About this RNA:
The family of this 202-nucleotide RNA is "raiA RNA". It is annotated as a riboswitch. Pairs were carried over by alignment from the consensus structure, which is taken from published work.

[Rfam]
RNA sequence: UUUUGCAAGGUCUGUGGUUGCAAGUUCAUGCCAGAUGCAGGCAAAGGAAUCCACGUAAGCUAUACAAAAACGAUAUAGUGAGCAUAGUGCAUCUUAGACGUAAGUCCUGCCGUAAAUUACGAGAGAAUGAUCAGUGAGGCAAACCCAAGCAAAAGUUCCAGCAGGCGAGUGUGGGGGUAAAGACCAGUGUCAGCUUGCAAAA
Numbered sequence: 001u002u003u004u005g006c007a008a009g010g011u012c013u014g015u016g017g018u019u020g021c022a023a024g025u026u027c028a029u030g031c032c033a034g035a036u037g038c039a040g041g042c043a044a045a046g047g048a049a050u051c052c053a054c055g056u057a058a059g060c061u062a063u064a065c066a067a068a069a070a071c072g073a074u075a076u077a078g079u080g081a082g083c084a085u086a087g088u089g090c091a092u093c094u095u096a097g098a099c100g101u102a103a104g105u106c107c108u109g110c111c112g113u114a115a116a117u118u119a120c121g122a123g124a125g126a127a128u129g130a131u132c133a134g135u136g137a138g139g140c141a142a143a144c145c146c147a148a149g150c151a152a153a154a155g156u157u158c159c160a161g162c163a164g165g166c167g168a169g170u171g172u173g174g175g176g177g178u179a180a181a182g183a184c185c186a187g188u189g190u191c192a193g194c195u196u197g198c199a200a201a202a
Base pairs, nucleotide, nucleotide: 001202002201003200004199005198006197007196008195009194012193013192014191015186016185017184018183019182028172029171030170031041033094034093035092036091037090038089039088050087058079085179106165107164108163109162110161111121112120113119114118125158126157127156128155134150135149138146139145